[Rfam]
RNA sequence: UGCCAAGUUCAAGACCACAAUAGAAGCUCAUGCUGUGGCCUGUUAGAUUCUACUGAAUCUGCGAUUUCUGCU
Numbered sequence: 001u002g003c004c005a006a007g008u009u010c011a012a013g014a015c016c017a018c019a020a021u022a023g024a025a026g027c028u029c030a031u032g033c034u035g036u037g038g039c040c041u042g043u044u045a046g047a048u049u050c051u052a053c054u055g056a057a058u059c060u061g062c063g064a065u066u067u068c069u070g071c072u
Stems, first nucleotide, its partner, number of pairs: 013040001015038002019072001021070005026036002044061007
RNA: Mammalian CPEB3 ribozyme